The record is a 77-nucleotide sequence from Crocodylus porosus, which matches "Mammalian CPEB3 ribozyme" in Rfam. The base pairs follow the family's consensus structure, which is taken from published work. On this family, see Teixeira et al., Nature 2004: "Autocatalytic RNA cleavage in the human beta-globin pre-mRNA promotes transcription termination". Lineage of the source: Eukaryota > Eumetazoa > Sauropsida > Crocodylidae > Crocodylus. About the family: The mammalian CPEB3 ribozyme is a self cleaving RNA located in the second intron of the CPEB3 gene which belongs to a family of genes regulating messenger RNA polyadenylation.
RNA sequence: AGUCCCAAGUUUGAGGCCAUAGCAGAAGUGGUCAUGCCACAGCUCUGUUAAAUUCCAAUGAAUCUGCACAGUCUGCU
Numbered sequence: 001a002g003u004c005c006c007a008a009g010u011u012u013g014a015g016g017c018c019a020u021a022g023c024a025g026a027a028g029u030g031g032u033c034a035u036g037c038c039a040c041a042g043c044u045c046u047g048u049u050a051a052a053u054u055c056c057a058a059u060g061a062a063u064c065u066g067c068a069c070a071g072u073c074u075g076c077u
Base pairs, nucleotide, nucleotide: 013045014044016043017042021077022076023075024074025073026072028040029039030038049066050065052063053062054061055060